[Rfam]
RNA sequence: CCCCUGUGAUGAAUUGCCAUGCUAAUACGGAGACACCAGGUAGGGAGUUUUACCCUGCAUUGGGUGUUGUUGAAAUAAACUCUUUCUCUUAAAUGCUGAGGGGC
Numbered sequence: 001c002c003c004c005u006g007u008g009a010u011g012a013a014u015u016g017c018c019a020u021g022c023u024a025a026u027a028c029g030g031a032g033a034c035a036c037c038a039g040g041u042a043g044g045g046a047g048u049u050u051u052a053c054c055c056u057g058c059a060u061u062g063g064g065u066g067u068u069g070u071u072g073a074a075a076u077a078a079a080c081u082c083u084u085u086c087u088c089u090u091a092a093a094u095g096c097u098g099a100g101g102g103g104c
Base pairs, nucleotide, nucleotide: 001103002102003101004100041057042056043055044054045053
Annotation
This 104-nucleotide RNA sequence from Cercocebus atys belongs to the Rfam family "Small nucleolar RNA U6-53/MBII-28". The source organism's lineage runs through Eukaryota, Euteleostomi, Boreoeutheria, Haplorrhini and Cercocebus. The pairing is the family consensus, mapped onto this sequence. The literature on the family includes a 2001 paper in EMBO J by Huttenhofer et al., "RNomics: an experimental approach that identifies 201 candidates for novel, small, non-messenger RNAs in mouse".